[Rfam]
RNA: Mycobacterium sRNA Ms_IGR-8
RNA sequence: UCCGGGCCAUGCGCCGAACGUGACGCCACUGCGAGAAACCGGCUGGAAUCUCGCAGUGGCGUC
Numbered sequence: 001u002c003c004g005g006g007c008c009a010u011g012c013g014c015c016g017a018a019c020g021u022g023a024c025g026c027c028a029c030u031g032c033g034a035g036a037a038a039c040c041g042g043c044u045g046g047a048a049u050c051u052c053g054c055a056g057u058g059g060c061g062u063c
Base pairs, nucleotide, nucleotide: 022063023062024061025060026059027058028057029056030055031054032053033052034051035049039045
Dot-bracket structure: .....................((((((((((((((...(.....)...).)))))))))))))